[Rfam]
RNA sequence: GAGAGAUAAAGGCAACCUUACUGAAAAGUAAUUACGCAAAGCUAUAGGGGCUAAGGGAAACUAUGCCAGCCAGUUACCGAA
Numbered sequence: 001g002a003g004a005g006a007u008a009a010a011g012g013c014a015a016c017c018u019u020a021c022u023g024a025a026a027a028g029u030a031a032u033u034a035c036g037c038a039a040a041g042c043u044a045u046a047g048g049g050g051c052u053a054a055g056g057g058a059a060a061c062u063a064u065g066c067c068a069g070c071c072a073g074u075u076a077c078c079g080a081a
Stems, first nucleotide, its partner, number of pairs: 012037002018031005040075004047071002049067003056061001